[Rfam]
RNA sequence: CGGUUGUUAGUAAUUAUCGUCAAUAACGUUAGUUACUAGAUGAUUGUACUUCAUAACGUAGCCGUUCGCCGUGCCCACACCGAAUGGUUACGCUUUUUU
Numbered sequence: 001c002g003g004u005u006g007u008u009a010g011u012a013a014u015u016a017u018c019g020u021c022a023a024u025a026a027c028g029u030u031a032g033u034u035a036c037u038a039g040a041u042g043a044u045u046g047u048a049c050u051u052c053a054u055a056a057c058g059u060a061g062c063c064g065u066u067c068g069c070c071g072u073g074c075c076c077a078c079a080c081c082g083a084a085u086g087g088u089u090a091c092g093c094u095u096u097u098u099u
Base pairs, nucleotide, nucleotide: 002045003044004043005042006041007040008038009037010036011035012034013033014032015031016030018028019027055094057092058091059090060089061088062087063086064085065084066083067082068081071080072079073078
RNA: 23S methyl RNA motif
Organism: Ligilactobacillus saerimneri